[Rfam]
RNA: Group II catalytic intron D1-D4-3
Organism: Thiocapsa marina
RNA sequence: GAAGCCGCGAGGCCAAGCUGAAAGAAGCGUGGAUCAAAGGCACGACCGUAGGAACACGAACAAGCAGUGAGGCCGGAUGCGGGCGAUGAGCGUGCUAGGGACCGCGAAAUCCAACCGUCACCGAAAGACGCAUCAGGUAGAGCUUGGCGGCACGGGCCGAAAGUCUUGGCAC
Numbered sequence: 001g002a003a004g005c006c007g008c009g010a011g012g013c014c015a016a017g018c019u020g021a022a023a024g025a026a027g028c029g030u031g032g033a034u035c036a037a038a039g040g041c042a043c044g045a046c047c048g049u050a051g052g053a054a055c056a057c058g059a060a061c062a063a064g065c066a067g068u069g070a071g072g073c074c075g076g077a078u079g080c081g082g083g084c085g086a087u088g089a090g091c092g093u094g095c096u097a098g099g100g101a102c103c104g105c106g107a108a109a110u111c112c113a114a115c116c117g118u119c120a121c122c123g124a125a126a127g128a129c130g131c132a133u134c135a136g137g138u139a140g141a142g143c144u145u146g147g148c149g150g151c152a153c154g155g156g157c158c159g160a161a162a163g164u165c166u167u168g169g170c171a172c
Stems, first nucleotide, its partner, number of pairs: 004013003027172001029170002035163001039158003043154002046150004061146005072138003076134006085111003090105003